Description: The family of this 139-nucleotide RNA from Dichanthelium oligosanthes is "MIR529 microRNA precursor family". The family has 3 seed sequences and 55 matches in Rfam 15.1. Taxonomically the source falls in Dichanthelium (Eukaryota, Streptophyta, Poaceae, Panicoideae).
Nucleotides: 139
Stems, first nucleotide, its partner, number of pairs: 005135002009129001012126002015123003019119010030108012
Number, partner (000 for none) and nucleotide at each position: 001000u002000c003000g004000u005135c006134a007000a008000g009129g010000c011000u012126a013125a014000c015123g016122g017121a018000a019119g020118a021117a022116g023115a024114g025113a026112g027111a028110g029000a030108g031107u032106a033105c034104a035103g036102c037101u038100u039099u040098g041097g042000g043000u044000a045000g046000u047000u048000a049000a050000g051000a052000u053000u054000a055000u056000a057000g058000u059000u060000u061000a062000g063000u064000a065000c066000u067000u068000g069000u070000g071000u072000g073000u074000g075000c076000c077000u078000a079000u080000a081000u082000a083000u084000a085000u086000g087000a088000u089000c090000u091000u092000u093000u094000u095000c096000g097041c098040c099039a100038a101037g102036g103035c104034u105033g106032u107031a108030c109000c110028c111027u112026c113025u114024c115023u116022c117021u118020u119019c120000g121017u122016c123015u124000c125013u126012u127000a128000g129009c130000a131000u132000c133000u134006u135005g136000a137000u138000g139000c